Background:
This 107-nucleotide sequence from Deinococcus deserti belongs to the Rfam family "c-di-GMP-II-GAG riboswitch aptamer".

RNA sequence: AAGCACUCGGGACGCGAUGACCCCCACCCCUCUCCGGCGCCUGUCAUUCGGGUGCACGCGGUCACCUCAGGUGGGGCGAGCCAGUGGUGAGACCGACCCGUGUGGGG
Numbered sequence: 001a002a003g004c005a006c007u008c009g010g011g012a013c014g015c016g017a018u019g020a021c022c023c024c025c026a027c028c029c030c031u032c033u034c035c036g037g038c039g040c041c042u043g044u045c046a047u048u049c050g051g052g053u054g055c056a057c058g059c060g061g062u063c064a065c066c067u068c069a070g071g072u073g074g075g076g077c078g079a080g081c082c083a084g085u086g087g088u089g090a091g092a093c094c095g096a097c098c099c100g101u102g103u104g105g106g107g
Base pairs, nucleotide, nucleotide: 004104005103006102008100009099010098011097014081015080022076023075024074025073026072027071028070060094061093062090063089064088065087066086

The sequence is in the family's curated seed alignment. The organism belongs to Deinococcus deserti, within Bacteria. Clan: c-di-GMP_II riboswitch clan.